A member of the RNA family "Transposase-2 RNA" from Micromonospora sicca, 67 nucleotides long.
Pairs were carried over by alignment from the consensus structure, which is taken from published work.
The family has 151 seed sequences and 214 matches in Rfam 15.1.
The match comes from Rfam's covariance-model search (58 bits).
Lineage of the source: Bacteria > Actinomycetota > Actinomycetes > Micromonosporales > Micromonospora.
RNA sequence: GAAACGUCAACCCGGCACCGCCGACGCGCGUCAGACCGGGACCGUCCCACCGCAAGGCGGGACUUCC
Numbered sequence: 001g002a003a004a005c006g007u008c009a010a011c012c013c014g015g016c017a018c019c020g021c022c023g024a025c026g027c028g029c030g031u032c033a034g035a036c037c038g039g040g041a042c043c044g045u046c047c048c049a050c051c052g053c054a055a056g057g058c059g060g061g062a063c064u065u066c067c
Base pairs, nucleotide, nucleotide: 011040012039013038014037015036019028020027021026044063045062046061047060048059050057051056
Dot-bracket structure: ..........(((((...(((....))).......)))))...(((((.((....)).)))))....